This 382-nucleotide RNA from Thiohalocapsa sp. PB-PSB1 belongs to the Rfam family "Bacterial RNase P class A". Pairs were carried over by alignment from the consensus structure, which is taken from published work. Gene Ontology terms of the family: dimeric ribonuclease P complex, tRNA processing and ribonuclease P activity.

[Rfam]
RNA sequence: GGAGUCGGCCAGACAGUCGCUCCCCGGUCUGGAGUUGCUCCUGACGCGGGGGGAGGAAAGUCCGGGCUCCACAGGGCAGGGUGCCAGGUAACGCCUGGGGGGCGCGAGCCCACGGAAAGUGCAACAGAAAAUAUACCGCCAACCCCGCUUGUGCGGGCGGUAAGGUUGAAAUGGUGCGGUAAGAGCGCACCGCGCCGGUGGCAACACGCGGCGGCAGGGUAAACCCCACCCGGAGCAAGACCAAAUAGAGGAACAUGCGGCCCUGCGCCGCGGCCCGCGGCCCGCGGGCGUUCCCGGGUAGGUCGCAAGAGGCGCGCGGUGACGCGCACCCCAGAUGAAUGACUGUCCACGACAGAACCCGGCUUAUCGGCUGGCUCCCACC
Numbered sequence: 001g002g003a004g005u006c007g008g009c010c011a012g013a014c015a016g017u018c019g020c021u022c023c024c025c026g027g028u029c030u031g032g033a034g035u036u037g038c039u040c041c042u043g044a045c046g047c048g049g050g051g052g053g054a055g056g057a058a059a060g061u062c063c064g065g066g067c068u069c070c071a072c073a074g075g076g077c078a079g080g081g082u083g084c085c086a087g088g089u090a091a092c093g094c095c096u097g098g099g100g101g102g103c104g105c106g107a108g109c110c111c112a113c114g115g116a117a118a119g120u121g122c123a124a125c126a127g128a129a130a131a132u133a134u135a136c137c138g139c140c141a142a143c144c145c146c147g148c149u150u151g152u153g154c155g156g157g158c159g160g161u162a163a164g165g166u167u168g169a170a171a172u173g174g175u176g177c178g179g180u181a182a183g184a185g186c187g188c189a190c191c192g193c194g195c196c197g198g199u200g201g202c203a204a205c206a207c208g209c210g211g212c213g214g215c216a217g218g219g220u221a222a223a224c225c226c227c228a229c230c231c232g233g234a235g236c237a238a239g240a241c242c243a244a245a246u247a248g249a250g251g252a253a254c255a256u257g258c259g260g261c262c263c264u265g266c267g268c269c270g271c272g273g274c275c276c277g278c279g280g281c282c283c284g285c286g287g288g289c290g291u292u293c294c295c296g297g298g299u300a301g302g303u304c305g306c307a308a309g310a311g312g313c314g315c316g317c318g319g320u321g322a323c324g325c326g327c328a329c330c331c332c333a334g335a336u337g338a339a340u341g342a343c344u345g346u347c348c349a350c351g352a353c354a355g356a357a358c359c360c361g362g363c364u365u366a367u368c369g370g371c372u373g374g375c376u377c378c379c380a381c382c
Stems, first nucleotide, its partner, number of pairs: 001378010011367001012347007020053007058365003062362005067235004074283004079231005084098005099113001100111004114226002119224002121220002136165002138161003144157005173191006192215001193213005198207003239304004250294005274288005311330002314327005
Dot-bracket structure: ((((((((((((((((((.(((((((....................)))))))....[[[.[[[[[((((...[[[[.((((((((((.....)))))(((((....)))).)((...((((.............(((((...(((((....))))).)))..)).......((((((.......))))))(((((((((....))).))))).)...))..)))))))))))))...((((.......(((((...................(((((.]]]]))))).)))))......))))......((.(((((....))))).))..........)))))))..........]]]]]]]].).))))))))))....